The family of this 170-nucleotide sequence from Geitlerinema sp. PCC 7407 is "Ribosomal protein L10 leader".
The organism belongs to Geitlerinema, within Bacteria.
The family's consensus secondary structure was predicted with CMfinder.
This family is a putative r-protein leader autoregulatory structure found in B. subtilis and other low-GC Gram-positive bacteria. It is located in the 5' untranslated regions of mRNAs encoding ribosomal proteins L10 and L12 (rplJ-rplL). A Rho-independent transcription terminator structure that is probably involved in regulation is included at the 3' end.
The family's RNA type in Rfam is cis-regulatory leader.
Gene Ontology term of the family: regulation of gene expression.

[Rfam]
RNA sequence: AUCUAUUUCUUUCUGAAGCCAGAGACAGCAGGCGCCUUGUGCUUAAUGCCCUGCCGAGGUUUAAACCAGAAAGCGAAUCGAGUCCCUAGCCGCUUGCGGCUAGCCAAGAAACGCUGGAAGUGUGUUUAGACAUCGCCCUGGCCUUAUCGCCAGGGUUUUUUGCUGGCAGU
Numbered sequence: 001a002u003c004u005a006u007u008u009c010u011u012u013c014u015g016a017a018g019c020c021a022g023a024g025a026c027a028g029c030a031g032g033c034g035c036c037u038u039g040u041g042c043u044u045a046a047u048g049c050c051c052u053g054c055c056g057a058g059g060u061u062u063a064a065a066c067c068a069g070a071a072a073g074c075g076a077a078u079c080g081a082g083u084c085c086c087u088a089g090c091c092g093c094u095u096g097c098g099g100c101u102a103g104c105c106a107a108g109a110a111a112c113g114c115u116g117g118a119a120g121u122g123u124g125u126u127u128a129g130a131c132a133u134c135g136c137c138c139u140g141g142c143c144u145u146a147u148c149g150c151c152a153g154g155g156u157u158u159u160u161u162g163c164u165g166g167c168a169g170u
Stems, first nucleotide, its partner, number of pairs: 028054005034042002136155007